This 100-nucleotide RNA from Crassaminicella thermophila belongs to the Rfam family "Purine riboswitch aptamer". Pairs were carried over by alignment from the consensus structure, which is taken from published work. The match comes from Rfam's covariance-model search (76 bits).
RNA sequence: UAAAAAUCAAUAAAAGGAAACCAUAUAAUUCUGAUAAUAAGGAUCGGAAGUAUCUACGAGAAACCGUAAAUUUCUCACUAUGGUGAAUCCAAGAAUAGAU
Numbered sequence: 001u002a003a004a005a006a007u008c009a010a011u012a013a014a015a016g017g018a019a020a021c022c023a024u025a026u027a028a029u030u031c032u033g034a035u036a037a038u039a040a041g042g043a044u045c046g047g048a049a050g051u052a053u054c055u056a057c058g059a060g061a062a063a064c065c066g067u068a069a070a071u072u073u074c075u076c077a078c079u080a081u082g083g084u085g086a087a088u089c090c091a092a093g094a095a096u097a098g099a100u
Stems, first nucleotide, its partner, number of pairs: 020084006029049007058076006